[Rfam]
The record is a 263-nucleotide RNA from Lentibacillus sp. CBA3610, which matches "BsrG" in Rfam. The base pairs follow the family's consensus structure, which was predicted with WAR. About the family: bsrE, bsrG and bsrH pair through intermolecular interactions with antisense sRNAs. They form type I toxin/antitoxin system that includes an mRNA encoding for a short, toxic peptide (bsrE, bsrG and bsrH) and an antitoxin that is comprised of an antisense RNA. bsrG encodes a 39-amino-acid toxin, and the 180 nucleotide antisense sRNA called SR4 acts as the antitoxin (they overlap by 123 nucleotides). SR4 interaction with the 3'UTR of bsrG RNA promotes bsrG degradation and inhibits its translation. BsrG interferes with cell envelope biosynthesis, causes membrane invaginations and delocalisation of the cell wall synthesis and initiates autolysis. bsrE RNA encodes 30 amino-acid toxin peptide. Its antitoxin gene, SR5 overlaps by 112 nucleotides at the 3' end of bsrE. SR5 also overlaps bsrG from nucleotide 163 to 52 (Rfam overlap check). The antitoxin SR5 promotes bsrE degradation but unlike SR4 it does not directly inhibits toxin mRNA translation. Lineage of the source: Bacteria > Bacillota > Bacilli > Bacillaceae > Lentibacillus.
RNA sequence: GUGUGAUAAGGCUUUCAUGGGUGGUAGCUCACUCCCUUCUUGGAUAGAAAGGGGGUGAGAGAAUGACAGUAUUCGAAACAAUAAUCGUAGCUAUUUCAUUUAGUUCAUUAAUCGUUGCUGUAUUGUCGUUUCACGAAAAAAAGUAACCACCCUGUCAGCCUAGCAAGCAUUUAAGGUGUGUUACUUUUCACCGAUCAAUGUGAGCUGCCCCCUUGAAGGGCUAUUGCACACAUUGGACCGUUUGGUGUUACCAGCACCACUCG
Numbered sequence: 001g002u003g004u005g006a007u008a009a010g011g012c013u014u015u016c017a018u019g020g021g022u023g024g025u026a027g028c029u030c031a032c033u034c035c036c037u038u039c040u041u042g043g044a045u046a047g048a049a050a051g052g053g054g055g056u057g058a059g060a061g062a063a064u065g066a067c068a069g070u071a072u073u074c075g076a077a078a079c080a081a082u083a084a085u086c087g088u089a090g091c092u093a094u095u096u097c098a099u100u101u102a103g104u105u106c107a108u109u110a111a112u113c114g115u116u117g118c119u120g121u122a123u124u125g126u127c128g129u130u131u132c133a134c135g136a137a138a139a140a141a142a143g144u145a146a147c148c149a150c151c152c153u154g155u156c157a158g159c160c161u162a163g164c165a166a167g168c169a170u171u172u173a174a175g176g177u178g179u180g181u182u183a184c185u186u187u188u189c190a191c192c193g194a195u196c197a198a199u200g201u202g203a204g205c206u207g208c209c210c211c212c213u214u215g216a217a218g219g220g221c222u223a224u225u226g227c228a229c230a231c232a233u234u235g236g237a238c239c240g241u242u243u244g245g246u247g248u249u250a251c252c253a254g255c256a257c258c259a260c261u262c263g
Base pairs, nucleotide, nucleotide: 001229003227004226005225007223010206011205012204013203014202016154017153019152020151021150023147025145029058030057031056033054034053035052036051037050065127066126067125068124069123070122071121102119103118104117209220210219211218239263240262243259244258245257246256247255248254249253